[Rfam]
RNA sequence: UCAGACGGUCCGACAGGCUGCUCUUUCUGGCAGGUUUCACCUGAACCGGAAAGGGAGGAAAGUCCGGGCUCCACGGGAAUACGGUGCCGGGUAACGCCCGGCGGGGGCGACCCUAGGGAAAGUGCCACAGAAAGCAAACCGCCUGUAGGUCCCAUUUCCUUAUGGAUUGUGACAAGCAGGUAAGGGUGAAAGGGUGUGGUAAGAGCACACCGCGCGGUCAGAAAUGGAAGCGGCAUGGUAAACCCCACCGGGAGCAAAACUAAAUAGGGUCGACAGGUUCACAAAACUUCGUUUUGAGGAAUCAGGUGUUUUUCCGCACCGUCGACCGGGUCAGUUGCGAGAGGUGUUCAGCAAUGAGCAUCCCAGAUGAAUAGCCUUCCGUUGUCACAGGCCUUGGCUUUGUGGCAAGCGACAAAACCCGGCUUAUGACCGUCUGACAUA
Numbered sequence: 001u002c003a004g005a006c007g008g009u010c011c012g013a014c015a016g017g018c019u020g021c022u023c024u025u026u027c028u029g030g031c032a033g034g035u036u037u038c039a040c041c042u043g044a045a046c047c048g049g050a051a052a053g054g055g056a057g058g059a060a061a062g063u064c065c066g067g068g069c070u071c072c073a074c075g076g077g078a079a080u081a082c083g084g085u086g087c088c089g090g091g092u093a094a095c096g097c098c099c100g101g102c103g104g105g106g107g108c109g110a111c112c113c114u115a116g117g118g119a120a121a122g123u124g125c126c127a128c129a130g131a132a133a134g135c136a137a138a139c140c141g142c143c144u145g146u147a148g149g150u151c152c153c154a155u156u157u158c159c160u161u162a163u164g165g166a167u168u169g170u171g172a173c174a175a176g177c178a179g180g181u182a183a184g185g186g187u188g189a190a191a192g193g194g195u196g197u198g199g200u201a202a203g204a205g206c207a208c209a210c211c212g213c214g215c216g217g218u219c220a221g222a223a224a225u226g227g228a229a230g231c232g233g234c235a236u237g238g239u240a241a242a243c244c245c246c247a248c249c250g251g252g253a254g255c256a257a258a259a260c261u262a263a264a265u266a267g268g269g270u271c272g273a274c275a276g277g278u279u280c281a282c283a284a285a286a287c288u289u290c291g292u293u294u295u296g297a298g299g300a301a302u303c304a305g306g307u308g309u310u311u312u313u314c315c316g317c318a319c320c321g322u323c324g325a326c327c328g329g330g331u332c333a334g335u336u337g338c339g340a341g342a343g344g345u346g347u348u349c350a351g352c353a354a355u356g357a358g359c360a361u362c363c364c365a366g367a368u369g370a371a372u373a374g375c376c377u378u379c380c381g382u383u384g385u386c387a388c389a390g391g392c393c394u395u396g397g398c399u400u401u402g403u404g405g406c407a408a409g410c411g412a413c414a415a416a417a418c419c420c421g422g423c424u425u426a427u428g429a430c431c432g433u434c435u436g437a438c439a440u441a
Base pairs, nucleotide, nucleotide: 001437002436003435004434005433006432007431008430009429010428012379013378015377016376017375018374019373021055022054023053024052025051026050027049028048029047060425061424062423064422065421066420067419068418069254070253071252072251077314078313079312082250083249084248085247086246087101088100089099090098091097102116103114104113105112106111117245118244122243123242124239125238126237139185140184141181142180143179144178145177146176149173150172151171193211194210195209196208197207198206212234213232214231215230218227219226220225258336259335260334261333268327269326270325271324272323273322305320306319307318308317309316343362344361345360346359347358348357349356350355
The family of this 441-nucleotide RNA sequence from Kiloniella litopenaei is "Bacterial RNase P class A". Rfam links the family to the GO terms tRNA processing, dimeric ribonuclease P complex and ribonuclease P activity. It scores 298 bits against the family's covariance model. It is annotated as a ribozyme.